[Rfam]
RNA sequence: AUGAAAAUAGCGAGAGACACCUUUUAUGGUGGCCGAAGGAGCAAUAUGAGGUGUGUCAUGGCCUCAUAAAAUCUCUCAGGCAAAUUAAUCGCUAUUUGAUG
Numbered sequence: 001a002u003g004a005a006a007a008u009a010g011c012g013a014g015a016g017a018c019a020c021c022u023u024u025u026a027u028g029g030u031g032g033c034c035g036a037a038g039g040a041g042c043a044a045u046a047u048g049a050g051g052u053g054u055g056u057c058a059u060g061g062c063c064u065c066a067u068a069a070a071a072u073c074u075c076u077c078a079g080g081c082a083a084a085u086u087a088a089u090c091g092c093u094a095u096u097u098g099a100u101g
Stems, first nucleotide, its partner, number of pairs: 006096008019030003032081003035077002039075003045068008

This 101-nucleotide sequence from Thermoanaerobacterium thermosaccharolyticum belongs to the Rfam family "Glycine riboswitch aptamer".